[Rfam]
RNA: Transposase-1 RNA
RNA sequence: CGUUAGGAGGUUGCCUCUGUCGUUACCCACCUUGUGUGGAUACGGGAACGCAGCUGUCGA
Numbered sequence: 001c002g003u004u005a006g007g008a009g010g011u012u013g014c015c016u017c018u019g020u021c022g023u024u025a026c027c028c029a030c031c032u033u034g035u036g037u038g039g040a041u042a043c044g045g046g047a048a049c050g051c052a053g054c055u056g057u058c059g060a
Stems, first nucleotide, its partner, number of pairs: 009055006020045004027039003